[Rfam]
RNA sequence: AUAUCUAUUUAGUAAACCCGCUGAAAAACGGGGACACAAAGCCAGAUGGGUCUAAGGUCUGAACAUAGAGAAAAAUCAGACUAUGACAGCCGGUUGCAGCA
Numbered sequence: 001a002u003a004u005c006u007a008u009u010u011a012g013u014a015a016a017c018c019c020g021c022u023g024a025a026a027a028a029c030g031g032g033g034a035c036a037c038a039a040a041g042c043c044a045g046a047u048g049g050g051u052c053u054a055a056g057g058u059c060u061g062a063a064c065a066u067a068g069a070g071a072a073a074a075a076u077c078a079g080a081c082u083a084u085g086a087c088a089g090c091c092g093g094u095u096g097c098a099g100c101a
Stems, first nucleotide, its partner, number of pairs: 012037002017032004022027001040095004048091002050087003057081006
RNA: c-di-GMP-I riboswitch aptamer